[Rfam]
RNA sequence: UAAAAAGCCAUGAAGAGAAGAGUAGCUAGAUCUUUGCGGCCAAAGAGAGUCGGGGCAGGUGAAAGCCGAUGCCGGAAGAUUUUCGUGAAAAUCAUCUCGGAGCUGCCAGGGUGAAGAGAAAGUAAUCCUGGCCGGGUCCCAUCAGGGAAUUGGCCACCGUUAGAACGGCCGGGUAUCGGGCCAAAAGCCCCGUACCUGCUGAGGUUCAUACCGCAAGGUAUGGAUGAAUCAGGGUGGUAACGCGAAACCCUUCGCCCCUUCA
Number, nucleotide and partner (000 for none) at each position: 001u000002a000003a000004a000005a000006a000007g103008c102009c000010a000011u000012g000013a000014a000015g098016a097017g096018a095019a000020g000021a000022g000023u000024a000025g086026c085027u000028a083029g082030a081031u000032c000033u000034u000035u000036g000037c000038g073039g072040c071041c000042a000043a000044a000045g000046a000047g000048a000049g070050u069051c068052g067053g066054g000055g000056c000057a000058g000059g000060u000061g000062a000063a000064a000065g000066c053067c052068g051069a050070u049071g040072c039073c038074g000075g000076a000077a000078g000079a000080u000081u030082u029083u028084c000085g026086u025087g000088a000089a000090a000091a000092u000093c000094a000095u018096c017097u016098c015099g000100g000101a000102g008103c007104u000105g000106c131107c130108a129109g128110g127111g126112u125113g000114a000115a000116g000117a000118g000119a000120a000121a000122g000123u000124a000125a112126u111127c110128c109129u108130g107131g106132c000133c159134g158135g157136g000137u000138c000139c000140c000141a000142u000143c000144a000145g000146g000147g000148a000149a000150u000151u000152g000153g000154c000155c000156a000157c135158c134159g133160u000161u000162a000163g000164a000165a000166c000167g000168g000169c000170c000171g000172g000173g000174u000175a000176u000177c000178g000179g000180g000181c000182c000183a000184a000185a000186a000187g000188c000189c000190c000191c000192g000193u000194a000195c000196c000197u000198g000199c000200u000201g000202a000203g000204g225205u224206u223207c222208a221209u220210a219211c000212c000213g000214c000215a000216a000217g000218g000219u210220a209221u208222g207223g206224a205225u204226g000227a000228a000229u000230c000231a259232g258233g257234g256235u000236g000237g000238u000239a000240a000241c000242g255243c254244g253245a252246a251247a000248c000249c000250c000251u246252u245253c244254g243255c242256c234257c233258c232259u231260u000261c000262a000
RNA: T-box leader
Organism: Thermoanaerobacteraceae bacterium SP2